[Rfam]
RNA sequence: GACAGGUGUGCCUGAAAUUUUCGCUCAAACCUGUCAAAUUUCUAAGGUGAGCAAAGUUUCAGGUGUGUCUGUCU
Numbered sequence: 001g002a003c004a005g006g007u008g009u010g011c012c013u014g015a016a017a018u019u020u021u022c023g024c025u026c027a028a029a030c031c032u033g034u035c036a037a038a039u040u041u042c043u044a045a046g047g048u049g050a051g052c053a054a055a056g057u058u059u060c061a062g063g064u065g066u067g068u069c070u071g072u073c074u
Stems, first nucleotide, its partner, number of pairs: 002072006009065007017057005024051004030047003